[Rfam]
A member of the RNA family "mir-71 microRNA precursor family" from Sitophilus oryzae, 67 nucleotides long. The match comes from Rfam's covariance-model search (52 bits). The base pairs follow the family's consensus structure, which was predicted with RNAalifold.

RNA sequence: UCUUUAUGAAAGACAAGGUAGUGAGAUAAACAAAUAACAUCUCACUACCCAUGUCUUUCAUAUAGAA
Numbered sequence: 001u002c003u004u005u006a007u008g009a010a011a012g013a014c015a016a017g018g019u020a021g022u023g024a025g026a027u028a029a030a031c032a033a034a035u036a037a038c039a040u041c042u043c044a045c046u047a048c049c050c051a052u053g054u055c056u057u058u059c060a061u062a063u064a065g066a067a
Base pairs, nucleotide, nucleotide: 008059009058010057011056012055013054014053015052017049018048020046021045022044023043024042025041026040027039